[Rfam]
RNA sequence: UAUUGCAUGUCCAGCUAUGCGAUGCACUUUGUUCAUUUUAACUUUGGAUAUAUGCGCCUCGCUAUGAACAUGUUCAUUUUUGUAGUGACCAGAUAGGGGAUUCCAAUAGCAUGAUGAAGGCUGAGGAUUAAUUCUAGUGGAGGGAUAUAUUUAGCUCAGACGAGGAUGAGAAAAAUGGAGUGGAGAUUACAAGGAGAGGUAAGAAAUAAAAAAGGAACGGAUGGGUUUUCUGCUUGGCUGUAUAGCAUGUUUGAGUUUUUCAGUUGUGUCUAUGUUCAAGUUUAUGAUAUGCUGUGGUUGGUUCUGUUGAUUUCACACGUUUUACUUCCAUAUAGUGUGUUGACGGAAACUCCGCGUUAAGGUUUAUUAUAAGGAAAUUUUGAAUUUGUUCUUUUUAUGUUGUUUUACCCUCUUUGCAAUUUUUUCCUUCUUUUUUUAUCCUCAUCUUUUCUGAAUGCAUCUAUUACACAUGCGGUUUUAAUUCACUGUUUUUUAAUUGCAAUGGGAGUUUUCUUUGUGUUGUUGCAUGAUUGGACGUGGGCAAGGUUUCUAUUUUCAAACUUGGUGCACUGUGGUGCAAUGCAUUGUUGCUUGCAAUAC
Numbered sequence: 001u002a003u004u005g006c007a008u009g010u011c012c013a014g015c016u017a018u019g020c021g022a023u024g025c026a027c028u029u030u031g032u033u034c035a036u037u038u039u040a041a042c043u044u045u046g047g048a049u050a051u052a053u054g055c056g057c058c059u060c061g062c063u064a065u066g067a068a069c070a071u072g073u074u075c076a077u078u079u080u081u082g083u084a085g086u087g088a089c090c091a092g093a094u095a096g097g098g099g100a101u102u103c104c105a106a107u108a109g110c111a112u113g114a115u116g117a118a119g120g121c122u123g124a125g126g127a128u129u130a131a132u133u134c135u136a137g138u139g140g141a142g143g144g145a146u147a148u149a150u151u152u153a154g155c156u157c158a159g160a161c162g163a164g165g166a167u168g169a170g171a172a173a174a175a176u177g178g179a180g181u182g183g184a185g186a187u188u189a190c191a192a193g194g195a196g197a198g199g200u201a202a203g204a205a206a207u208a209a210a211a212a213a214g215g216a217a218c219g220g221a222u223g224g225g226u227u228u229u230c231u232g233c234u235u236g237g238c239u240g241u242a243u244a245g246c247a248u249g250u251u252u253g254a255g256u257u258u259u260u261c262a263g264u265u266g267u268g269u270c271u272a273u274g275u276u277c278a279a280g281u282u283u284a285u286g287a288u289a290u291g292c293u294g295u296g297g298u299u300g301g302u303u304c305u306g307u308u309g310a311u312u313u314c315a316c317a318c319g320u321u322u323u324a325c326u327u328c329c330a331u332a333u334a335g336u337g338u339g340u341u342g343a344c345g346g347a348a349a350c351u352c353c354g355c356g357u358u359a360a361g362g363u364u365u366a367u368u369a370u371a372a373g374g375a376a377a378u379u380u381u382g383a384a385u386u387u388g389u390u391c392u393u394u395u396u397a398u399g400u401u402g403u404u405u406u407a408c409c410c411u412c413u414u415u416g417c418a419a420u421u422u423u424u425u426c427c428u429u430c431u432u433u434u435u436u437u438a439u440c441c442u443c444a445u446c447u448u449u450u451c452u453g454a455a456u457g458c459a460u461c462u463a464u465u466a467c468a469c470a471u472g473c474g475g476u477u478u479u480a481a482u483u484c485a486c487u488g489u490u491u492u493u494u495a496a497u498u499g500c501a502a503u504g505g506g507a508g509u510u511u512u513c514u515u516u517g518u519g520u521u522g523u524u525g526c527a528u529g530a531u532u533g534g535a536c537g538u539g540g541g542c543a544a545g546g547u548u549u550c551u552a553u554u555u556u557c558a559a560a561c562u563u564g565g566u567g568c569a570c571u572g573u574g575g576u577g578c579a580a581u582g583c584a585u586u587g588u589u590g591c592u593u594g595c596a597a598u599a600c
Stems, first nucleotide, its partner, number of pairs: 001599007012590004017585005023579006031570002034567004043560006056547004061542003069539008081527009095515006101508003107504002112499003116493006123486001125484007132142004143462004148457007158447003162443008177431004182426005190416007199408004205401004210396002213393010226377006232281006241274005246268004251263005283371007291363003294355004300350001302348009314339005
RNA: Small nucleolar RNA snR86, nucleotides 172 to 771